[Rfam]
RNA sequence: AUUUCAAUUAUAUAUGGUUCUCGUAUAAUAAUGGAAAUAUGGUCCAUAAGUAUCUACCAGAUCCCCGUAAAGGAUCUGACUACGGGAGUUUAUAGUUAUAGG
Numbered sequence: 001a002u003u004u005c006a007a008u009u010a011u012a013u014a015u016g017g018u019u020c021u022c023g024u025a026u027a028a029u030a031a032u033g034g035a036a037a038u039a040u041g042g043u044c045c046a047u048a049a050g051u052a053u054c055u056a057c058c059a060g061a062u063c064c065c066c067g068u069a070a071a072g073g074a075u076c077u078g079a080c081u082a083c084g085g086g087a088g089u090u091u092a093u094a095g096u097u098a099u100a101g102g
Stems, first nucleotide, its partner, number of pairs: 018088008029049001031047005058078007